[Rfam]
RNA sequence: GUGUUCCCUAGAGUUCCCUUGACCGCUUCAUUAGGGCAUACUUGUUGUUUGAUGCCCUGCUGAAGUGUUUGGGGGAACUCCUGGGCUCAC
Numbered sequence: 001g002u003g004u005u006c007c008c009u010a011g012a013g014u015u016c017c018c019u020u021g022a023c024c025g026c027u028u029c030a031u032u033a034g035g036g037c038a039u040a041c042u043u044g045u046u047g048u049u050u051g052a053u054g055c056c057c058u059g060c061u062g063a064a065g066u067g068u069u070u071g072g073g074g075g076a077a078c079u080c081c082u083g084g085g086c087u088c089a090c
Stems, first nucleotide, its partner, number of pairs: 006085003011080010022070001024067007032059004